Small nucleolar RNA SNORA65: a 128-nucleotide RNA from Parambassis ranga. By type it is an H/ACA-box small nucleolar RNA. The source organism's lineage runs through Eukaryota, Neopterygii, Neoteleostei, Euacanthomorphacea and Parambassis. Rfam describes the family as follows. U65 belongs to the H/ACA class of snoRNAs which are thought to guide the sites of modification of uridines to pseudouridines.
RNA sequence: CCCGCCACUACACCCGUCUGUCCCAGUGACCGGGUGGAGUCCAGUGGAGGCUCAGAGCAAACCCGGCUUUAGGAAACAGGGCUGCUCACACCGAUGGACAGCUCUGUGCCGAAAAGUCCGGAACACUU
Numbered sequence: 001c002c003c004g005c006c007a008c009u010a011c012a013c014c015c016g017u018c019u020g021u022c023c024c025a026g027u028g029a030c031c032g033g034g035u036g037g038a039g040u041c042c043a044g045u046g047g048a049g050g051c052u053c054a055g056a057g058c059a060a061a062c063c064c065g066g067c068u069u070u071a072g073g074a075a076a077c078a079g080g081g082c083u084g085c086u087c088a089c090a091c092c093g094a095u096g097g098a099c100a101g102c103u104c105u106g107u108g109c110c111g112a113a114a115a116g117u118c119c120g121g122a123a124c125a126c127u128u
Base pairs, nucleotide, nucleotide: 005047006046007045008044009043018034019032020031021029022028063121064120065119066118067116068115069114070113072110073109077106078105079104080103081102082101086097087096